[Rfam]
RNA: SraG RNA
Organism: Erwinia tracheiphila
RNA sequence: CUCCGCUUGCAUCCUCGCGACUAAUGACAACCCUCAAUCCCACCCGGGAUGAAGCCUCUCAUUAGCCGCGCGAACCUCUGCAACUGGAGAUCACACUCAGCAACAAUACAAUAGUUUGGUCUGAAUUGCUGCCUUCAACCUGAAAAAAGGGGCCGUAAGGCCCCUUUUA
Numbered sequence: 001c002u003c004c005g006c007u008u009g010c011a012u013c014c015u016c017g018c019g020a021c022u023a024a025u026g027a028c029a030a031c032c033c034u035c036a037a038u039c040c041c042a043c044c045c046g047g048g049a050u051g052a053a054g055c056c057u058c059u060c061a062u063u064a065g066c067c068g069c070g071c072g073a074a075c076c077u078c079u080g081c082a083a084c085u086g087g088a089g090a091u092c093a094c095a096c097u098c099a100g101c102a103a104c105a106a107u108a109c110a111a112u113a114g115u116u117u118g119g120u121c122u123g124a125a126u127u128g129c130u131g132c133c134u135u136c137a138a139c140c141u142g143a144a145a146a147a148a149g150g151g152g153c154c155g156u157a158a159g160g161c162c163c164c165u166u167u168u169a
Stems, first nucleotide, its partner, number of pairs: 001089005009081003016072004021065007096123001149164006